[Rfam]
mir-744 microRNA precursor family: a 96-nucleotide sequence from Mus musculus. The organism belongs to Mus, within Eukaryota. Gene Ontology terms of the family: RISC complex and miRNA-mediated post-transcriptional gene silencing. The family's consensus secondary structure was predicted with RNAalifold.

RNA sequence: CUGGGCAAGGUGCGGGGCUAGGGCUAACAGCAGUCUUACUGACGGUUUCCUGGAAACCACACACAUGCUGUUGCCACUAACCUCAACCUUACUCGG
Numbered sequence: 001c002u003g004g005g006c007a008a009g010g011u012g013c014g015g016g017g018c019u020a021g022g023g024c025u026a027a028c029a030g031c032a033g034u035c036u037u038a039c040u041g042a043c044g045g046u047u048u049c050c051u052g053g054a055a056a057c058c059a060c061a062c063a064c065a066u067g068c069u070g071u072u073g074c075c076a077c078u079a080a081c082c083u084c085a086a087c088c089u090u091a092c093u094c095g096g
Stems, first nucleotide, its partner, number of pairs: 003094003007090005014084004019079003022075003026072007044058006